Shown here is a 184-nucleotide RNA from Oryza barthii, a member of the family "MIR812 microRNA precursor family".
The source organism's lineage runs through Eukaryota, commelinids, Poales, Oryzeae and Oryza.
The family's consensus secondary structure was predicted with RNAalifold.
Rfam links the family to the GO terms miRNA-mediated post-transcriptional gene silencing and RISC complex.
The match comes from Rfam's covariance-model search (108 bits).
[Rfam]
RNA sequence: AAUAAAUACAGUUUUGCAUUGUUCAUGCCCAAUGUUUCAUACUUCGUUUUAUUUGAAAAAAAUUAUGAUAUGUAUUUUCAAUGAUAAAACAUGAAUAGUACUCUAUGUGUGACUAUAUUUUAAAUUUUUUGAAAUAAGACGGAUGAUCAAACGUUGGACACGGAUACCCAUAACUGCACUUAUU
Numbered sequence: 001a002a003u004a005a006a007u008a009c010a011g012u013u014u015u016g017c018a019u020u021g022u023u024c025a026u027g028c029c030c031a032a033u034g035u036u037u038c039a040u041a042c043u044u045c046g047u048u049u050u051a052u053u054u055g056a057a058a059a060a061a062a063u064u065a066u067g068a069u070a071u072g073u074a075u076u077u078u079c080a081a082u083g084a085u086a087a088a089a090c091a092u093g094a095a096u097a098g099u100a101c102u103c104u105a106u107g108u109g110u111g112a113c114u115a116u117a118u119u120u121u122a123a124a125u126u127u128u129u130u131g132a133a134a135u136a137a138g139a140c141g142g143a144u145g146a147u148c149a150a151a152c153g154u155u156g157g158a159c160a161c162g163g164a165u166a167c168c169c170a171u172a173a174c175u176g177c178a179c180u181u182a183u184u
Stems, first nucleotide, its partner, number of pairs: 029157005035151003039147002043143010